Rfam assigns this 89-nucleotide sequence from Streptomyces sp. MA5143a to the family "Streptomyces RNA 3202". NCBI's taxonomy places the organism under Bacteria, Actinomycetota, Actinomycetes, Streptomycetaceae, Streptomyces. The base pairs follow the family's consensus structure. Rfam's curators write: Identified by deep sequencing of transcriptome at the end of exponential growth phase. Appears smaller on northern blot than sequencing transcript. This indicates processing step.
Nucleotides: 089
Stems, first nucleotide, its partner, number of pairs: 005034006012027003041085010052074007
Number, partner (000 for none) and nucleotide at each position: 001000c002000c003000g004000a005034g006033u007032c008031c009030c010029g011000a012027c013026g014025c015000u016000c017000u018000c019000c020000c021000c022000c023000c024000a025014g026013u027012g028000c029010c030009g031008g032007g033006a034005c035000u036000c037000c038000u039000c040000a041085g042084a043083g044082c045081c046080g047079g048078g049077c050076u051000u052074c053073g054072g055071c056070g057069c058068c059000u060000c061000c062000c063000c064000c065000c066000c067000c068058g069057g070056c071055g072054c073053c074052g075000g076050a077049g078048c079047c080046c081045g082044g083043c084042u085041c086000c087000u088000u089000u